[Rfam]
RNA sequence: GCACUACAGCAAACUUGAUCCAGCUGCUUUGGUGUUGGAUCGGGGUUACCAUGGUGCCAGAGUAACUCAGAGUGUAUCCAGAUGAGUCUCUGUCCAUUGGAGCUUGUCCCUACAACCUCUGAUACACCA
Numbered sequence: 001g002c003a004c005u006a007c008a009g010c011a012a013a014c015u016u017g018a019u020c021c022a023g024c025u026g027c028u029u030u031g032g033u034g035u036u037g038g039a040u041c042g043g044g045g046u047u048a049c050c051a052u053g054g055u056g057c058c059a060g061a062g063u064a065a066c067u068c069a070g071a072g073u074g075u076a077u078c079c080a081g082a083u084g085a086g087u088c089u090c091u092g093u094c095c096a097u098u099g100g101a102g103c104u105u106g107u108c109c110c111u112a113c114a115a116c117c118u119c120u121g122a123u124a125c126a127c128c129a
Base pairs, nucleotide, nucleotide: 001057002056003055004054005053012046014044015043016042017041018040020038021037067122068121069120070119071118072116081108082107083106084105085104086103087102094100095099
RNA: Small nucleolar RNA SNORA55